Shown here is a 77-nucleotide RNA sequence from Crocodylus porosus, a member of the family "Mammalian CPEB3 ribozyme". It scores 38 bits against the family's covariance model.

[Rfam]
RNA sequence: GUUGCAAGUUUGUAGGCCAUAGCAGACCUACUCAUGGUGUGGCCAUGCUAGAUUCCAGUGAAUCUGAAAAUUCUGCU
Numbered sequence: 001g002u003u004g005c006a007a008g009u010u011u012g013u014a015g016g017c018c019a020u021a022g023c024a025g026a027c028c029u030a031c032u033c034a035u036g037g038u039g040u041g042g043c044c045a046u047g048c049u050a051g052a053u054u055c056c057a058g059u060g061a062a063u064c065u066g067a068a069a070a071u072u073c074u075g076c077u
Stems, first nucleotide, its partner, number of pairs: 013045001015044004021077006029039002049066007
Background
Rfam 15.1 lists 5,706 matches to the family in 197 species.